[Rfam]
RNA sequence: UUCCGCUGCCCUCCUUGGGCGUUUCCUCCCUAGACUUGGGCCGCUCCUCAAAGGGGCGGCCCCUUUUUUAUGCCGAU
Numbered sequence: 001u002u003c004c005g006c007u008g009c010c011c012u013c014c015u016u017g018g019g020c021g022u023u024u025c026c027u028c029c030c031u032a033g034a035c036u037u038g039g040g041c042c043g044c045u046c047c048u049c050a051a052a053g054g055g056g057c058g059g060c061c062c063c064u065u066u067u068u069u070a071u072g073c074c075g076a077u
Base pairs, nucleotide, nucleotide: 008020009019010018011017038062039061040060041059042058043057044056045055046054
Dot-bracket structure: .......((((.....)))).................(((((((((.......)))))))))...............
Shown here is a 77-nucleotide RNA sequence from Methyloceanibacter sp., a member of the family "Makes More Granules Regulator RNA (mmgR)".
SuhB later renamed mmgR (makes more granules regulator) was a putative non-coding RNA found multiple times in the Agrobacterium tumefaciens genome and related alpha-proteobacteria. Other non-coding RNAs uncovered in the same analysis include: speF, ybhL, metA, and serC.Several studies inSinorhizobium meliloti showed that suhB element is indeed a non-coding RNA:firstly it was detected on Northern blot and called Sm8RNA, secondly in an RNAseq study referred to as SmelC689.The mutant phenotype's (strain lacking the small RNA) cytoplasm contains higher content of polyhydroxybutyrate (PBH)storage granules than wild type strain. The sRNA is required to limit the PBH intracellular accumulation when the nitrogen-fixing Sinorhizobium meliloti is under condition of surplus carbon in relation to nitrogen.
The base pairs follow the family's consensus structure.
The source organism's lineage runs through Bacteria, Pseudomonadati, Hyphomicrobiales, Hyphomicrobiaceae and Methyloceanibacter.
It scores 75 bits against the family's covariance model.
The literature on the family includes a 2005 paper in Genome Biol by Corbino et al., "Evidence for a second class of S-adenosylmethionine riboswitches and other regulatory RNA motifs in alpha-proteobacteria".